The record is a 61-nucleotide RNA sequence from Equus caballus, which matches "mir-133 microRNA precursor family" in Rfam. The sequence is in the family's curated seed alignment. Rfam describes the family as follows. mir-133 was first experimentally characterised in mouse and homologues have since been discovered in several other species. Lineage of the source: Eukaryota > Euteleostomi > Sarcopterygii > Perissodactyla > Equus.

RNA sequence: UGGCUGGUCAAACGGAACCAAGUCCGUCUUCCUGAGAGGUUUGGUCCCCUUCAACCAGCUA
Numbered sequence: 001u002g003g004c005u006g007g008u009c010a011a012a013c014g015g016a017a018c019c020a021a022g023u024c025c026g027u028c029u030u031c032c033u034g035a036g037a038g039g040u041u042u043g044g045u046c047c048c049c050u051u052c053a054a055c056c057a058g059c060u061a
Base pairs, nucleotide, nucleotide: 002060003059004058005057006056007055008054011051012050014047015046016045018044019043020042021041022040023039024038